[Rfam]
RNA sequence: CCUCCUUUUCUUGGCAGGGCUGGGCAGAUGAGUGCCCCGCUCUGUAAUGUCCGGAGGUAAAGCCAAGCCCACUCAGCGUUCUGUCUUCGGUGCCAGCUGCUUGCCAUCUGCUGGUUCUAUCCUCAAGCGCUGGGACACCU
Numbered sequence: 001c002c003u004c005c006u007u008u009u010c011u012u013g014g015c016a017g018g019g020c021u022g023g024g025c026a027g028a029u030g031a032g033u034g035c036c037c038c039g040c041u042c043u044g045u046a047a048u049g050u051c052c053g054g055a056g057g058u059a060a061a062g063c064c065a066a067g068c069c070c071a072c073u074c075a076g077c078g079u080u081c082u083g084u085c086u087u088c089g090g091u092g093c094c095a096g097c098u099g100c101u102u103g104c105c106a107u108c109u110g111c112u113g114g115u116u117c118u119a120u121c122c123u124c125a126a127g128c129g130c131u132g133g134g135a136c137a138c139c140u
Stems, first nucleotide, its partner, number of pairs: 001057005015044006022037004074132006093114005099108001

Notes: The family of this 140-nucleotide RNA from Ophiophagus hannah is "Small nucleolar RNA SNORA57". The literature on the family includes a 2003 paper in Nucleic Acids Res by Vitali et al., "Identification of 13 novel human modification guide RNAs". Gene Ontology terms of the family: RNA processing and nucleolus. Rfam classes the family as an H/ACA-box small nucleolar RNA. Rfam describes the family as follows. U99 belongs to the H/ACA class of snoRNAs which are thought to guide the sites of modification of uridines to pseudouridines, the target for this family is unknown.